[Rfam]
RNA: mir-9193 microRNA precursor family
RNA sequence: CUUGGGGUCGGGGGUGGUCCCUCAGCCUGGAAUGAGAGAGGGCACAGGCCAGGCUGAGGGACCCUACCAGUGCAUC
Numbered sequence: 001c002u003u004g005g006g007g008u009c010g011g012g013g014g015u016g017g018u019c020c021c022u023c024a025g026c027c028u029g030g031a032a033u034g035a036g037a038g039a040g041g042g043c044a045c046a047g048g049c050c051a052g053g054c055u056g057a058g059g060g061a062c063c064c065u066a067c068c069a070g071u072g073c074a075u076c
Base pairs, nucleotide, nucleotide: 003074004073006071011068012067014065016063017062018061019060020059021058022057023056024055025054026053027052029050030049033046034045036043